[Rfam]
The family of this 131-nucleotide RNA sequence from Rhipidura dahli is "Small Cajal body specific RNA 15". Its family is annotated with nucleolus, RNA processing and Cajal body in the Gene Ontology. The family has 22 seed sequences and 635 matches in Rfam 15.1. Rfam classes the family as a small Cajal body RNA. Rfam's curators write: scaRNAs are a specific class of small nuclear RNAs which localise to the Cajal bodies and guide the modification of RNA polymerase II transcribed spliceosomal RNAs U1, U2, U4, U5 and U12. ACA45 belongs to the H/ACA box class of guide RNAs as it has the predicted hairpin-hinge-hairpin-tail structure, the conserved H/ACA-box motifs and is found associated with GAR1.
RNA sequence: CUGGAGGACUAAGAAAGUGGAGCCAGUGGCAUUAUAUUGACUCCACUGAUACUAUCCUCCUAAAUUAAAUGGUGGAAGAACAAGGCCUGCCUGUGAGAUAAAGUCGGGACCUACUUGAUCUACCAACAAUG
Numbered sequence: 001c002u003g004g005a006g007g008a009c010u011a012a013g014a015a016a017g018u019g020g021a022g023c024c025a026g027u028g029g030c031a032u033u034a035u036a037u038u039g040a041c042u043c044c045a046c047u048g049a050u051a052c053u054a055u056c057c058u059c060c061u062a063a064a065u066u067a068a069a070u071g072g073u074g075g076a077a078g079a080a081c082a083a084g085g086c087c088u089g090c091c092u093g094u095g096a097g098a099u100a101a102a103g104u105c106g107g108g109a110c111c112u113a114c115u116u117g118a119u120c121u122a123c124c125a126a127c128a129a130u131g
Stems, first nucleotide, its partner, number of pairs: 003060006010051002018045005024039001026035003071124006083112003086108004